Shown here is a 91-nucleotide RNA sequence from Glycine max, a member of the family "Small nucleolar RNA snoR27". Gene Ontology terms of the family: nucleolus and RNA processing. On this family, see Brown et al., RNA 2001: "Multiple snoRNA gene clusters from Arabidopsis". The base pairs follow the family's consensus structure, which was predicted with WAR. It is annotated as a C/D-box small nucleolar RNA.
[Rfam]
RNA sequence: AUGGGAUCUGUGAUGGUGUUCAGAGACUGCGUUAUCUAUCUGUAGUUUCCUCUAAGGAACUGGAGAUAAUCGUAAUUUACUGAGAUCUUGC
Numbered sequence: 001a002u003g004g005g006a007u008c009u010g011u012g013a014u015g016g017u018g019u020u021c022a023g024a025g026a027c028u029g030c031g032u033u034a035u036c037u038a039u040c041u042g043u044a045g046u047u048u049c050c051u052c053u054a055a056g057g058a059a060c061u062g063g064a065g066a067u068a069a070u071c072g073u074a075a076u077u078u079a080c081u082g083a084g085a086u087c088u089u090g091c
Stems, first nucleotide, its partner, number of pairs: 002090006
The family is grouped with related families in Rfam's "snR68 clan".
The source organism's lineage runs through Eukaryota, Streptophyta, Fabales, Glycine and Glycine subgen. Soja.